[Rfam]
RNA sequence: GGAAGAUUGAGAAGAGCUGUUCCUAGUACGAGAGGACCGGAAUGGACACACCUCUUGUGAUCCUGUUGUCGCGCCAGCGGCACUGCAGGGUAGCAACGUGUGGAAUAGAGAAACGCUGAAAGCAUCUAAGUGUGAAACUAACUUCAAGAUUAAUCUUCCCUUUCUUAAAUGAAGUAAGAAUCGUUAAAGACUAUAACGUUGAUAGGUCGGAUGUGUACGCACGGUGACGUGUUUAGCUAACCGAUACUAAUAAUUCGAGG
Numbered sequence: 001g002g003a004a005g006a007u008u009g010a011g012a013a014g015a016g017c018u019g020u021u022c023c024u025a026g027u028a029c030g031a032g033a034g035g036a037c038c039g040g041a042a043u044g045g046a047c048a049c050a051c052c053u054c055u056u057g058u059g060a061u062c063c064u065g066u067u068g069u070c071g072c073g074c075c076a077g078c079g080g081c082a083c084u085g086c087a088g089g090g091u092a093g094c095a096a097c098g099u100g101u102g103g104a105a106u107a108g109a110g111a112a113a114c115g116c117u118g119a120a121a122g123c124a125u126c127u128a129a130g131u132g133u134g135a136a137a138c139u140a141a142c143u144u145c146a147a148g149a150u151u152a153a154u155c156u157u158c159c160c161u162u163u164c165u166u167a168a169a170u171g172a173a174g175u176a177a178g179a180a181u182c183g184u185u186a187a188a189g190a191c192u193a194u195a196a197c198g199u200u201g202a203u204a205g206g207u208c209g210g211a212u213g214u215g216u217a218c219g220c221a222c223g224g225u226g227a228c229g230u231g232u233u234u235a236g237c238u239a240a241c242c243g244a245u246a247c248u249a250a251u252a253a254u255u256c257g258a259g260g
Stems, first nucleotide, its partner, number of pairs: 001159008011145004017045007047102005055096003062089005067082006106140003113133005162173003175258001178256004182198005203249003206245005213237001219232005
A member of the RNA family "Bacterial large subunit ribosomal RNA" from Ureaplasma urealyticum, 260 nucleotides of a longer RNA. Pairs were carried over by alignment from the consensus structure, which is taken from published work. Rfam links the family to the GO terms structural constituent of ribosome and ribosome. It is one of the family's seed sequences.